[Rfam]
RNA sequence: AUAUACACUGAGUGGCCAGAUUAUUAUGAUCUCUGAACACAAAAUAAUCUGGCCAUUCAGUGUAUCC
Numbered sequence: 001a002u003a004u005a006c007a008c009u010g011a012g013u014g015g016c017c018a019g020a021u022u023a024u025u026a027u028g029a030u031c032u033c034u035g036a037a038c039a040c041a042a043a044a045u046a047a048u049c050u051g052g053c054c055a056u057u058c059a060g061u062g063u064a065u066c067c
Stems, first nucleotide, its partner, number of pairs: 004064014019049007027041002

This 67-nucleotide RNA from Pipistrellus kuhlii belongs to the Rfam family "mir-9256 microRNA precursor family".
Rfam 15.1 lists 31,772 matches to the family in 5 species.
Taxonomically the source falls in Pipistrellus (Eukaryota, Gnathostomata, Euteleostomi, Tetrapoda).
The match comes from Rfam's covariance-model search (81 bits).